RNA sequence: UCUGAUUGUCCAGGUUGGACCUCUGCUGGUUUCUUCCGCGGUGAUAUUCCUAAACAAGUGGUUAUCACCGGGUGAAAACUGGUAGAGGUCUGAUCUAGUCAG
Numbered sequence: 001u002c003u004g005a006u007u008g009u010c011c012a013g014g015u016u017g018g019a020c021c022u023c024u025g026c027u028g029g030u031u032u033c034u035u036c037c038g039c040g041g042u043g044a045u046a047u048u049c050c051u052a053a054a055c056a057a058g059u060g061g062u063u064a065u066c067a068c069c070g071g072g073u074g075a076a077a078a079c080u081g082g083u084a085g086a087g088g089u090c091u092g093a094u095c096u097a098g099u100c101a102g
Stems, first nucleotide, its partner, number of pairs: 016092007024084009034074001036072002039070001041068006
Dot-bracket structure: ...............(((((((.(((((((((.(.((.(.((((((................)))))).))).).))))))))).)))))))..........

Rfam assigns this 102-nucleotide RNA from Caenorhabditis nigoni to the family "mir-36 microRNA precursor family". The family is grouped with related families in Rfam's "mir-36 clan". Its family is annotated with RISC complex and miRNA-mediated post-transcriptional gene silencing in the Gene Ontology. A reference for the family is Ohler et al. (2004), "Patterns of flanking sequence conservation and a characteristic upstream motif for microRNA gene identification", RNA.